[Rfam]
RNA sequence: AUAAUGAUACUUCCGUAAGGCUCGCCGUAAACUGGGGAGAGGUGAAAUUCCUAUGU
Numbered sequence: 001a002u003a004a005u006g007a008u009a010c011u012u013c014c015g016u017a018a019g020g021c022u023c024g025c026c027g028u029a030a031a032c033u034g035g036g037g038a039g040a041g042g043u044g045a046a047a048u049u050c051c052u053a054u055g056u
Base pairs, nucleotide, nucleotide: 012053013020014019021039022038023037025035026034027033040052041051042050
RNA: pemK RNA